Description
The family of this 144-nucleotide sequence from Erwinia tracheiphila is "Leucine operon leader". Taxonomically the source falls in Erwinia (Bacteria, Pseudomonadati, Enterobacterales, Erwiniaceae). The base pairs follow the family's consensus structure, which is taken from published work. From the family's description: At least 6 amino acid operons are known to be regulated by attenuation.
RNA sequence: UAAGGUCUGAUUCAAUGAUUCGUACCACCUGCCUUACAGAUCUACUACUAACGCAUCUUUCUUGCGCGGUAAGCUUUUGGGCGGAAUGAAUCACUGAUUCAGACUUGCAAAACAAAAAACCCGCGCAAAUGCGCGGGUUUUUUA
Dot-bracket structure: ...(.(((((.(((.(((......((.((((..............((((..((((.......)))).))))...)...))).))......))).))).))))).)..........(((((((((((....)))))))))))...

The match comes from Rfam's covariance-model search (96 bits).